[Rfam]
RNA sequence: GCGCAGCCUCCAGCGUGGCGGGGCCUGGCGUGGCCCCCGCCAUUCCUGCAGCGCUGCCAGAGUAUCCCGGGGCCGUUUGAGGCCUCUCCCGGCGCCUCCCGGGGGCGGUUAUGGAACCCCCGGACAGCC
Numbered sequence: 001g002c003g004c005a006g007c008c009u010c011c012a013g014c015g016u017g018g019c020g021g022g023g024c025c026u027g028g029c030g031u032g033g034c035c036c037c038c039g040c041c042a043u044u045c046c047u048g049c050a051g052c053g054c055u056g057c058c059a060g061a062g063u064a065u066c067c068c069g070g071g072g073c074c075g076u077u078u079g080a081g082g083c084c085u086c087u088c089c090c091g092g093c094g095c096c097u098c099c100c101g102g103g104g105g106c107g108g109u110u111a112u113g114g115a116a117c118c119c120c121c122g123g124a125c126a127g128c129c
Stems, first nucleotide, its partner, number of pairs: 003057005016042003021036005068122005083108002086105003090101003

Small nucleolar RNA SNORA9: a 129-nucleotide RNA from Scytalopus superciliaris. A search with the family's covariance model found it, with a score of 87 bits. ACA9 is a member of the H/ACA class of snoRNA that guide the sites of modification of uridines to pseudouridines. Its family is annotated with nucleolus and RNA processing in the Gene Ontology.